[Rfam]
RNA sequence: AAACUUGUUUUGAUUCUUUGGCAGUUUUGGAUCCCCAAGGCAAAAAAAUAAUAAAAGAUUUGACACGUGACAUCUCACUUAGGGUGUCACGUCAGCGUUGACCGAGUCAACAAUGGACUGGGGGUCCAAAACUGCCAAAGAAUCAAAACAUAGGGGGCUGUUU
Numbered sequence: 001a002a003a004c005u006u007g008u009u010u011u012g013a014u015u016c017u018u019u020g021g022c023a024g025u026u027u028u029g030g031a032u033c034c035c036c037a038a039g040g041c042a043a044a045a046a047a048a049u050a051a052u053a054a055a056a057g058a059u060u061u062g063a064c065a066c067g068u069g070a071c072a073u074c075u076c077a078c079u080u081a082g083g084g085u086g087u088c089a090c091g092u093c094a095g096c097g098u099u100g101a102c103c104g105a106g107u108c109a110a111c112a113a114u115g116g117a118c119u120g121g122g123g124g125u126c127c128a129a130a131a132c133u134g135c136c137a138a139a140g141a142a143u144c145a146a147a148a149c150a151u152a153g154g155g156g157g158c159u160g161u162u163u
Stems, first nucleotide, its partner, number of pairs: 006150032065092002068089007
Dot-bracket structure: .....((((((((((((((((((((((((((((((((...........................((.(((((((........))))))).))..........................)))))))))))))))))))))))))))))))).............
RNA: MIR2619 microRNA precursor family
Organism: Medicago truncatula